[Rfam]
RNA sequence: UUACCGGCGGCCUCAGAUUCGCUUGGUGCAGGUCGGGCAUUGAUUGUCUGACACCUCCACAUGUUUUAUCAUGUUUUGCUUGUGAACAGUGAUCUGUUCCCGACUUGCACCAACGGAAUCGGAGUCCGAGGUGAAA
Numbered sequence: 001u002u003a004c005c006g007g008c009g010g011c012c013u014c015a016g017a018u019u020c021g022c023u024u025g026g027u028g029c030a031g032g033u034c035g036g037g038c039a040u041u042g043a044u045u046g047u048c049u050g051a052c053a054c055c056u057c058c059a060c061a062u063g064u065u066u067u068a069u070c071a072u073g074u075u076u077u078g079c080u081u082g083u084g085a086a087c088a089g090u091g092a093u094c095u096g097u098u099c100c101c102g103a104c105u106u107g108c109a110c111c112a113a114c115g116g117a118a119u120c121g122g123a124g125u126c127c128g129a130g131g132u133g134a135a136a
Stems, first nucleotide, its partner, number of pairs: 013123002017119004023113010034102004041096001
RNA: MIR168 microRNA precursor family